[Rfam]
RNA sequence: AGCGAUAAAGGCACACCCGCCGAAAGACGGGGCCGCAAAGCCACGGGGCUACAGGAAGCGGGCGCCGCCCUGCCGGGUCUCCCGCCUCCCAUGCUAGCCGGGCUGCCGCUC
Dot-bracket structure: ..((......((...((((.(....).))))..[))..((((.((((((...........................................))).])))))))..))...
RNA: c-di-GMP-I-GGC riboswitch aptamer
Organism: Symbiobacterium thermophilum